Record summary:
The record is a 330-nucleotide RNA sequence from Wigglesworthia glossinidia, which matches "Bacterial RNase P class A" in Rfam. Ribonuclease P (RNase P) is a ubiquitous endoribonuclease, found in archaea, bacteria and eukarya as well as chloroplasts and mitochondria. It is one of the family's seed sequences.

RNA sequence: AAAGUUAGCUAGACAAUCGCUGUUUAAUACAGAGGAAAGUCCGGGCCCUAAAGAGCAAGAUGCCAGGUAAUUCCUGGGAGGAGUGAUCCUACGACUAGUGCAACAGAAAAAAAACCGCCACUUUUGUUGGUAAGGGUGAAAAGGUGCGAUAAGAGCGUACCGCAAUUUAUGGUAACAUAAUUGGCAGUGUAAACUCCAUCUAGGGCAAGGCCAAAUAAAAGCUUGAUUGCUCGUCUUUAAGCUUUGGUAGGCUGCAAGAAUAAAUAUGUGAAUGUUUAUCUAGAUAAAUGAUUGUCCAAGACAGAACCCGGCUUACAGCUAACUUUAUUU
Numbered sequence: 001a002a003a004g005u006u007a008g009c010u011a012g013a014c015a016a017u018c019g020c021u022g023u024u025u026a027a028u029a030c031a032g033a034g035g036a037a038a039g040u041c042c043g044g045g046c047c048c049u050a051a052a053g054a055g056c057a058a059g060a061u062g063c064c065a066g067g068u069a070a071u072u073c074c075u076g077g078g079a080g081g082a083g084u085g086a087u088c089c090u091a092c093g094a095c096u097a098g099u100g101c102a103a104c105a106g107a108a109a110a111a112a113a114a115c116c117g118c119c120a121c122u123u124u125u126g127u128u129g130g131u132a133a134g135g136g137u138g139a140a141a142a143g144g145u146g147c148g149a150u151a152a153g154a155g156c157g158u159a160c161c162g163c164a165a166u167u168u169a170u171g172g173u174a175a176c177a178u179a180a181u182u183g184g185c186a187g188u189g190u191a192a193a194c195u196c197c198a199u200c201u202a203g204g205g206c207a208a209g210g211c212c213a214a215a216u217a218a219a220a221g222c223u224u225g226a227u228u229g230c231u232c233g234u235c236u237u238u239a240a241g242c243u244u245u246g247g248u249a250g251g252c253u254g255c256a257a258g259a260a261u262a263a264a265u266a267u268g269u270g271a272a273u274g275u276u277u278a279u280c281u282a283g284a285u286a287a288a289u290g291a292u293u294g295u296c297c298a299a300g301a302c303a304g305a306a307c308c309c310g311g312c313u314u315a316c317a318g319c320u321a322a323c324u325u326u327a328u329u330u
Stems, first nucleotide, its partner, number of pairs: 001326010012296007020032004037314003041311005046205004053232004058201005063077005078092001079090004093196002098194002100190003115135002117131004122126001143161006162185001163183005169178003209253004219244004225235003260279008